[Rfam]
RNA sequence: UGCCUCGUUAUUCAGCAAAUAGACACGACUCAACUGUGUGUCUGAAUUGAAGAACGUGGCUAGAAGACUAACAGGUUCUGCUUUCCUCGCUGUAAAGCUAAUUGCAGUGGUGACAAUGAGACCUGUAACAGGU
Numbered sequence: 001u002g003c004c005u006c007g008u009u010a011u012u013c014a015g016c017a018a019a020u021a022g023a024c025a026c027g028a029c030u031c032a033a034c035u036g037u038g039u040g041u042c043u044g045a046a047u048u049g050a051a052g053a054a055c056g057u058g059g060c061u062a063g064a065a066g067a068c069u070a071a072c073a074g075g076u077u078c079u080g081c082u083u084u085c086c087u088c089g090c091u092g093u094a095a096a097g098c099u100a101a102u103u104g105c106a107g108u109g110g111u112g113a114c115a116a117u118g119a120g121a122c123c124u125g126u127a128a129c130a131g132g133u
Base pairs, nucleotide, nucleotide: 002060003059004058006056007055008054021043022042023041024040025039026038027037071126072125073124074123075122085112087110088109089108090107
Shown here is a 133-nucleotide RNA sequence from Caloenas nicobarica, a member of the family "Small nucleolar RNA SNORA1". It scores 101 bits against the family's covariance model. Pairs were carried over by alignment from the consensus structure, which was predicted with PFOLD. Its family is annotated with RNA processing and nucleolus in the Gene Ontology. The organism belongs to Caloenas, within Eukaryota. From the family's description: ACA1 is a member of the H/ACA class of snoRNA that guide the sites of modification of uridines to pseudouridines. Rfam 15.1 lists 1,282 matches to the family in 515 species.